[Rfam]
This 182-nucleotide RNA sequence from Streptomyces argyrophylli belongs to the Rfam family "c-di-AMP riboswitch aptamer (ydaO/yuaA leader)". Rfam describes the family as follows. This family represents a conserved RNA structure found upstream of the ydaO and yuaA genes in Bacillus subtilis and related genes in other bacteria. Rfam 15.1 lists 7,607 matches to the family in 2,262 species.

Nucleotides: 182
Stems, first nucleotide, its partner, number of pairs: 011169002014166001019034002036164006046094001095149003103125002106122003128143004
Number, partner (000 for none) and nucleotide at each position: 001000g002000c003000a004000u005000a006000c007000c008000c009000a010000u011169c012168g013000a014166c015000g016000a017000a018000c019034u020033c021000a022000u023000u024000c025000g026000u027000a028000c029000g030000g031000c032000a033020g034019g035000a036164g037163c038162g039161g040160g041159g042000g043000a044000c045000c046094c047000a048000g049000g050000u051000a052000a053000g054000c055000c056000g057000c058000c059000g060000g061000u062000c063000c064000g065000g066000a067000a068000c069000g070000g071000c072000a073000c074000a075000c076000g077000c078000c079000g080000c081000g082000c083000c084000g085000g086000g087000a088000c089000g090000g091000c092000u093000a094046g095149g096148g097147g098000u099000g100000a101000a102000g103125c104124c105000a106122u107121g108120c109000c110000u111000c112000c113000g114000u115000c116000a117000g118000g119000a120108g121107c122106a123000c124104g125103g126000c127000c128143g129142g130141g131140c132000a133000c134000c135000u136000c137000c138000c139000c140131g141130c142129c143128c144000g145000a146000a147097c148096c149095c150000g151000a152000c153000a154000g155000c156000u157000c158000a159041c160040c161039u162038c163037g164036c165000a166014g167000g168012c169011g170000c171000c172000g173000g174000a175000g176000a177000g178000g179000a180000a181000c182000g